RNA sequence: GAGAGGGAGGAACCAUCAUGUCGAAGACAUGAUAUUCAUUGUUCCAAACGACAUGCCGCCGAACGAAGUGAGGGGGCGUUACCCGGG
Numbered sequence: 001g002a003g004a005g006g007g008a009g010g011a012a013c014c015a016u017c018a019u020g021u022c023g024a025a026g027a028c029a030u031g032a033u034a035u036u037c038a039u040u041g042u043u044c045c046a047a048a049c050g051a052c053a054u055g056c057c058g059c060c061g062a063a064c065g066a067a068g069u070g071a072g073g074g075g076g077c078g079u080u081a082c083c084c085g086g087g
Stems, first nucleotide, its partner, number of pairs: 009045005016032006055077003059073002063069002